[Rfam]
RNA sequence: AGGAAUUAGCUCUUUAAUAUUUAUCUAGAAGGAUCCCUAGUAAAAAGGGAUCCUAC
Numbered sequence: 001a002g003g004a005a006u007u008a009g010c011u012c013u014u015u016a017a018u019a020u021u022u023a024u025c026u027a028g029a030a031g032g033a034u035c036c037c038u039a040g041u042a043a044a045a046a047g048g049g050a051u052c053c054u055a056c
Stems, first nucleotide, its partner, number of pairs: 031053008
A member of the RNA family "U7 small nuclear RNA" from Gadus morhua, 56 nucleotides long. On this family, see Marz et al., Genomics Proteomics Bioinformatics 2007: "U7 snRNAs: a computational survey". Pairs were carried over by alignment from the consensus structure, which was predicted with PFOLD. From the family's description: Animal histone pre-mRNAs are spliced by a different mechanism than nuclear pre-mRNAs and self-splicing introns. This processing involves the U7 snRNP, which contains only one RNA species: U7. The 5' end of U7 RNA is thought to base-pair to a conserved spacer element downstream of the cleavage site in histone pre-mRNA. This family contains a number of annotated U7 pseudogenes. The match comes from Rfam's covariance-model search (39 bits).